[Rfam]
RNA sequence: AGCAGGACCAAGUUGAGUGGGCCAUUUCCCGGUAUGUACUCUAGGCCACAGGUUUUCGAGCUUGCCACCUAAAUGAGGGCCUGCC
Numbered sequence: 001a002g003c004a005g006g007a008c009c010a011a012g013u014u015g016a017g018u019g020g021g022c023c024a025u026u027u028c029c030c031g032g033u034a035u036g037u038a039c040u041c042u043a044g045g046c047c048a049c050a051g052g053u054u055u056u057c058g059a060g061c062u063u064g065c066c067a068c069c070u071a072a073a074u075g076a077g078g079g080c081c082u083g084c085c
Base pairs, nucleotide, nucleotide: 002084003083004082006080008078009077012074013073014072016070017069018067019066021065022064024062026060027059028058032053033052035050036049037048
Dot-bracket structure: .(((.(.((..(((.((((.((.(.(((...((.(((..........))).))....))).).)))).)).)))..)).).))).
A member of the RNA family "mir-571 microRNA precursor family" from Colobus angolensis, 85 nucleotides long. Taxonomically the source falls in Colobus angolensis (Eukaryota, Gnathostomata, Amniota, Catarrhini).